This 61-nucleotide RNA from Pristionchus pacificus belongs to the Rfam family "mir-8364 microRNA precursor family".

[Rfam]
RNA sequence: UCUUCAUUUCACGCGCUCUCUCACCGUUCAGAAUGACGAGAGAGUGUGUGAAAUGAAGAUA
Dot-bracket structure: (((((((..(.((((((.((((...............)))).)))))).)..)))))))..
Numbered sequence: 001u002c003u004u005c006a007u008u009u010c011a012c013g014c015g016c017u018c019u020c021u022c023a024c025c026g027u028u029c030a031g032a033a034u035g036a037c038g039a040g041a042g043a044g045u046g047u048g049u050g051a052a053a054u055g056a057a058g059a060u061a
Stems, first nucleotide, its partner, number of pairs: 001059007010050001012048006019041004
Rfam links the family to the GO terms miRNA-mediated post-transcriptional gene silencing and RISC complex. Lineage of the source: Eukaryota > Chromadorea > Rhabditina > Diplogasteromorpha > Pristionchus.